The family of this 345-nucleotide RNA sequence from Heliornis fulica is "Nuclear RNase P". Rfam classes the family as a ribozyme. The match comes from Rfam's covariance-model search (148 bits).

RNA sequence: UCCGGGGGAAGCUCACUGCCGAGGUCACGCACGGGGUGCGCGUCACCCGAGCCCCGCCUCGGGGAAGGUCUGAGGGAAGGGCCGCCCGCGGCUCCAGCAGAGCCCCGCCCGCGAAGGGGCGGGUGAGCCACCAGCAAGGGGGGGCGCCGCGCUCGGCCGAGGCUCGUAGCAACCUUCGGGCAGGAGAAGCCGCGCCCGGCUCCGUUCCGCCGCGGCGGCGGAGCCCCGGUGGAUGCCCGUGGCCUCCGCGGUGCUUUGAGACAGACUCACGGCCGGCGAUCGCUGAGUCCAAUGGGUGAGGUGGGGCAGCGCCCUACAACCCAAUUCAGACUACUCUCCCCCGGA
Number, nucleotide and partner (000 for none) at each position: 001u345002c344003c343004g342005g000006g000007g339008g338009a337010a000011g000012c300013u299014c298015a297016c296017u295018g000019c000020c061021g060022a059023g058024g057025u000026c000027a000028c000029g000030c000031a000032c000033g000034g048035g047036g046037u045038g044039c000040g000041c000042g000043u000044c038045a037046c036047c035048c034049g000050a000051g000052c000053c000054c000055c000056g000057c024058c023059u022060c021061g020062g000063g000064g000065a000066a000067g000068g000069u000070c329071u328072g327073a326074g325075g000076g000077a000078a000079g000080g274081g273082c272083c271084g000085c000086c000087c000088g000089c000090g104091g103092c102093u101094c100095c000096a000097g000098c000099a000100g094101a093102g092103c091104c090105c122106c121107g120108c119109c118110c117111g000112c000113g000114a000115a000116g000117g110118g109119g108120c107121g106122g105123g270124u269125g268126a267127g266128c000129c264130a000131c000132c000133a000134g000135c000136a000137a000138g000139g000140g000141g000142g000143g255144g254145c253146g252147c251148c250149g249150c248151g247152c000153u000154c000155g000156g000157c000158c000159g000160a000161g000162g000163c000164u000165c000166g000167u000168a000169g000170c000171a000172a000173c000174c000175u000176u000177c000178g000179g000180g000181c000182a000183g000184g000185a000186g000187a000188a000189g000190c000191c000192g000193c000194g000195c000196c000197c000198g000199g000200c000201u000202c000203c000204g000205u000206u000207c000208c000209g000210c000211c000212g000213c000214g000215g000216c000217g000218g000219c000220g000221g000222a000223g000224c000225c000226c000227c000228g000229g000230u000231g000232g000233a000234u000235g000236c000237c000238c000239g000240u000241g000242g000243c000244c000245u000246c000247c151248g150249c149250g148251g147252u146253g145254c144255u143256u000257u000258g000259a000260g000261a000262c000263a000264g129265a000266c127267u126268c125269a124270c123271g083272g082273c081274c080275g000276g000277c000278g000279a000280u000281c000282g000283c000284u000285g000286a000287g000288u000289c000290c000291a000292a000293u000294g000295g017296g016297u015298g014299a013300g012301g317302u316303g315304g314305g313306g312307c311308a000309g000310c000311g307312c306313c305314c304315u303316a302317c301318a000319a000320c000321c000322c000323a000324a000325u074326u073327c072328a071329g070330a000331c000332u000333a000334c000335u000336c000337u009338c008339c007340c000341c000342c004343g003344g002345a001

Taxonomically the source falls in Heliornis (Eukaryota, Craniata, Teleostomi, Tetrapoda).